[Rfam]
RNA sequence: CGUAGACCGGCAUGUUGCGUAAGGAUAAUCAACCACAGAGGGCGAGAAGUUCGUCCUUAUCCUCAAAAGGCUAAAAGAGGAGAUAGUGCUUCUGAUAAUUCAGAAGGGCGUCGUGAAACACAUUUUGUGGCUCGUCUGUAACUCCCGGAGGUGAGAACACCUCUUUGUACACGGGGCGAUAUAGGAGUCUAGAAGACUGGCGUGUACCUACA
Numbered sequence: 001c002g003u004a005g006a007c008c009g010g011c012a013u014g015u016u017g018c019g020u021a022a023g024g025a026u027a028a029u030c031a032a033c034c035a036c037a038g039a040g041g042g043c044g045a046g047a048a049g050u051u052c053g054u055c056c057u058u059a060u061c062c063u064c065a066a067a068a069g070g071c072u073a074a075a076a077g078a079g080g081a082g083a084u085a086g087u088g089c090u091u092c093u094g095a096u097a098a099u100u101c102a103g104a105a106g107g108g109c110g111u112c113g114u115g116a117a118a119c120a121c122a123u124u125u126u127g128u129g130g131c132u133c134g135u136c137u138g139u140a141a142c143u144c145c146c147g148g149a150g151g152u153g154a155g156a157a158c159a160c161c162u163c164u165u166u167g168u169a170c171a172c173g174g175g176g177c178g179a180u181a182u183a184g185g186a187g188u189c190u191a192g193a194a195g196a197c198u199g200g201c202g203u204g205u206a207c208c209u210a211c212a
Stems, first nucleotide, its partner, number of pairs: 034115003038058008060081005082112003086109002089106005119129003148163006167207007186198005
Annotation
Rfam assigns this 212-nucleotide RNA to the family "Clostridiales-3 RNA". It is one of the family's seed sequences. Pairs were carried over by alignment from the consensus structure, which is taken from published work. Rfam classes the family as a small RNA.